Rfam assigns this 100-nucleotide RNA sequence from Floricoccus tropicus to the family "THF (Tetrahydrofolate) riboswitch aptamer". It scores 76 bits against the family's covariance model. A reference for the family is Ames et al. (2010), "A eubacterial riboswitch class that senses the coenzyme tetrahydrofolate", Chem Biol.
RNA sequence: UACAGAGUAGUUUUACAAGCGUCAAGUGUCCGUGGGAUGGGAUGUUGCCCCGGAACGAAGCCGAUUCAAUCGACGCGGUUUGUAGAAUGCAUUCGCUGUC
Numbered sequence: 001u002a003c004a005g006a007g008u009a010g011u012u013u014u015a016c017a018a019g020c021g022u023c024a025a026g027u028g029u030c031c032g033u034g035g036g037a038u039g040g041g042a043u044g045u046u047g048c049c050c051c052g053g054a055a056c057g058a059a060g061c062c063g064a065u066u067c068a069a070u071c072g073a074c075g076c077g078g079u080u081u082g083u084a085g086a087a088u089g090c091a092u093u094c095g096c097u098g099u100c
Stems, first nucleotide, its partner, number of pairs: 002099004010088010020077003026056002029054004034050003040094005060074001062072002